[Rfam]
RNA sequence: GGGUCAGGUUUAGCUCUAGUGGUUACUUCGCUCCAACUUGGAUUAACUCCCAGUUGUGGGAGUUCAAGACCUGCGGGCGCUCUCUGACUGUUUU
Numbered sequence: 001g002g003g004u005c006a007g008g009u010u011u012a013g014c015u016c017u018a019g020u021g022g023u024u025a026c027u028u029c030g031c032u033c034c035a036a037c038u039u040g041g042a043u044u045a046a047c048u049c050c051c052a053g054u055u056g057u058g059g060g061a062g063u064u065c066a067a068g069a070c071c072u073g074c075g076g077g078c079g080c081u082c083u084c085u086g087a088c089u090g091u092u093u094u
Stems, first nucleotide, its partner, number of pairs: 002089006013078004019074004027068002030065001
RNA: Vault RNA